[Rfam]
Rfam assigns this 127-nucleotide RNA sequence from Clostridium paraputrificum to the family "SAM riboswitch aptamer (S box leader)". Rfam links the family to the GO term regulation of gene expression. The organism belongs to Clostridium, within Bacteria.
RNA sequence: AUCUUAUCCAGAGUGGUGGAGGGACUGGCCCUGUGAAACCCAGCAACCGAUUAAGUGGCUCAUUUUCCAUUUAGAAUACGGUGCUAAUUCCUGCAGCAAUUUUUUAUAUUUUGCUGAUAGAUAAGAG
Numbered sequence: 001a002u003c004u005u006a007u008c009c010a011g012a013g014u015g016g017u018g019g020a021g022g023g024a025c026u027g028g029c030c031c032u033g034u035g036a037a038a039c040c041c042a043g044c045a046a047c048c049g050a051u052u053a054a055g056u057g058g059c060u061c062a063u064u065u066u067c068c069a070u071u072u073a074g075a076a077u078a079c080g081g082u083g084c085u086a087a088u089u090c091c092u093g094c095a096g097c098a099a100u101u102u103u104u105u106a107u108a109u110u111u112u113g114c115u116g117a118u119a120g121a122u123a124a125g126a127g
Base pairs, nucleotide, nucleotide: 002126003125004124005123006122007121008120013041015040016039017038021031022030023029025093027091028090042085043084044083045082047081048080049077051075052074089119094116095115096114097113098112099111